This 107-nucleotide RNA sequence belongs to the Rfam family "Bacteroidales small SRP". A search with the family's covariance model found it, with a score of 108 bits.

RNA sequence: CCGAUACGGGUGAGUCCUACACGACCAGCUCCUUGUGAAUCCCCCAGGGCUUGACCGCAGCAAGGGUAGCAGGUCGUAGCGGUGCGAUGCAGGUUGCUCACCUACCC
Numbered sequence: 001c002c003g004a005u006a007c008g009g010g011u012g013a014g015u016c017c018u019a020c021a022c023g024a025c026c027a028g029c030u031c032c033u034u035g036u037g038a039a040u041c042c043c044c045c046a047g048g049g050c051u052u053g054a055c056c057g058c059a060g061c062a063a064g065g066g067u068a069g070c071a072g073g074u075c076g077u078a079g080c081g082g083u084g085c086g087a088u089g090c091a092g093g094u095u096g097c098u099c100a101c102c103u104a105c106c107c
Stems, first nucleotide, its partner, number of pairs: 008103008017092002020089002022086002024083002